[Rfam]
RNA sequence: GGGUCAAUGAUGAGAACCCUAUAUUGUGUUGAAGAGAGGUGAUGACUUAAAAUUACCAUGCUCAAUGAUUACGCUGAGGCCC
Numbered sequence: 001g002g003g004u005c006a007a008u009g010a011u012g013a014g015a016a017c018c019c020u021a022u023a024u025u026g027u028g029u030u031g032a033a034g035a036g037a038g039g040u041g042a043u044g045a046c047u048u049a050a051a052a053u054u055a056c057c058a059u060g061c062u063c064a065a066u067g068a069u070u071a072c073g074c075u076g077a078g079g080c081c082c
Stems, first nucleotide, its partner, number of pairs: 001082004005076002008073002

Record summary:
Small nucleolar RNA SNORD115: an 82-nucleotide sequence. By type it is a C/D-box small nucleolar RNA. For this family Rfam cites "Identification of brain-specific and imprinted small nucleolar RNA genes exhibiting an unusual genomic organization" (Cavaille et al., Proc Natl Acad Sci U S A, 2000). The sequence is in the family's curated seed alignment. The family's consensus secondary structure was predicted with PFOLD.